[Rfam]
This 90-nucleotide RNA sequence from Monodelphis domestica belongs to the Rfam family "Small nucleolar RNA MBII-202". Gene Ontology terms of the family: RNA processing and nucleolus. The match comes from Rfam's covariance-model search (85 bits). The family's RNA type in Rfam is C/D-box small nucleolar RNA. The literature on the family includes a 2001 paper in EMBO J by Huttenhofer et al., "RNomics: an experimental approach that identifies 201 candidates for novel, small, non-messenger RNAs in mouse".
RNA sequence: UGAUGACAAAUUCUCCGGAAUCUCUGUACUGCCUCUGAUGAAAGUACAUUUGAACCCUUUUCCAUCUGAUGACUGUAUUCUGGUCUCUUU
Number, nucleotide and partner (000 for none) at each position: 001u000002g090003a089004u000005g087006a086007c000008a000009a000010a000011u000012u000013c000014u000015c000016c000017g000018g000019a000020a000021u000022c000023u000024c000025u000026g000027u000028a000029c000030u000031g000032c000033c000034u000035c000036u000037g000038a000039u000040g000041a000042a000043a000044g000045u000046a000047c000048a000049u000050u000051u000052g000053a000054a000055c000056c000057c000058u000059u000060u000061u000062c000063c000064a000065u000066c000067u000068g000069a000070u000071g000072a000073c000074u000075g000076u000077a000078u000079u000080c000081u000082g000083g000084u000085c000086u006087c005088u000089u003090u002